Notes
Shown here is a 99-nucleotide sequence from Caenorhabditis nigoni, a member of the family "mir-240 microRNA precursor family". Rfam links the family to the GO terms miRNA-mediated post-transcriptional gene silencing and RISC complex. NCBI's taxonomy places the organism under Eukaryota, Ecdysozoa, Nematoda, Rhabditina, Caenorhabditis. The family's consensus secondary structure was predicted with RNAalifold.

RNA sequence: UUAUUCCGAACUGUUUUCAAAUCGAAGAUUUCGAGGCCUGAAUGCAAGAGUCACUUUGAGCAUACUGGCCUCCAAAUUUUCGCUUUGAAUUUUGGUUAC
Numbered sequence: 001u002u003a004u005u006c007c008g009a010a011c012u013g014u015u016u017u018c019a020a021a022u023c024g025a026a027g028a029u030u031u032c033g034a035g036g037c038c039u040g041a042a043u044g045c046a047a048g049a050g051u052c053a054c055u056u057u058g059a060g061c062a063u064a065c066u067g068g069c070c071u072c073c074a075a076a077u078u079u080u081c082g083c084u085u086u087g088a089a090u091u092u093u094g095g096u097u098a099c
Base pairs, nucleotide, nucleotide: 009097010096011095012094016089017088018087019086020085021084023082024081025080026079027078028077029076030075031074033072034071035070036069037068038067042063043062044061045060